Rfam assigns this 75-nucleotide sequence from Flavobacterium sp. GT3R68 to the family "Flavo-1 RNA". The family's consensus secondary structure is taken from published work. Taxonomically the source falls in Flavobacterium (Bacteria, Pseudomonadati, Flavobacteriia, Flavobacteriales). A search with the family's covariance model found it, with a score of 52 bits.

[Rfam]
RNA sequence: UUUUAGCGUGAGGGAUGGCAGUGGAAAUCCUUUUUGAGGAACGAAAAAAGAUUGCAACGUACAGCCCGUUCGCCG
Number, nucleotide and partner (000 for none) at each position: 001u000002u000003u000004u000005a000006g000007c000008g000009u000010g000011a000012g067013g066014g065015a000016u063017g062018g000019c000020a000021g058022u057023g000024g000025a000026a053027a052028u051029c050030c000031u000032u048033u047034u046035u045036g000037a000038g000039g000040a000041a000042c000043g000044a000045a035046a034047a033048a032049a000050g029051a028052u027053u026054g000055c000056a000057a022058c021059g000060u000061a000062c017063a016064g000065c014066c013067c012068g000069u000070u000071c000072g000073c000074c000075g000